[Rfam]
RNA sequence: AAAGACGGACUGGCUGAAUAAAGAUUUCCGUUACGAUGAAGGCGCUGCUGCACUGCAACAUUCAAUGAUUGAUCAAAGUCGUCUCAUUGGCUGAUCAAUUAUACCGCUGGA
Numbered sequence: 001a002a003a004g005a006c007g008g009a010c011u012g013g014c015u016g017a018a019u020a021a022a023g024a025u026u027u028c029c030g031u032u033a034c035g036a037u038g039a040a041g042g043c044g045c046u047g048c049u050g051c052a053c054u055g056c057a058a059c060a061u062u063c064a065a066u067g068a069u070u071g072a073u074c075a076a077a078g079u080c081g082u083c084u085c086a087u088u089g090g091c092u093g094a095u096c097a098a099u100u101a102u103a104c105c106g107c108u109g110g111a
Base pairs, nucleotide, nucleotide: 004032005031006030007029008028009027011024038063039062040061042059065102066101067100068099069098070097071096072095073094074093077092078091079090080089
RNA: Methylobacterium-1 RNA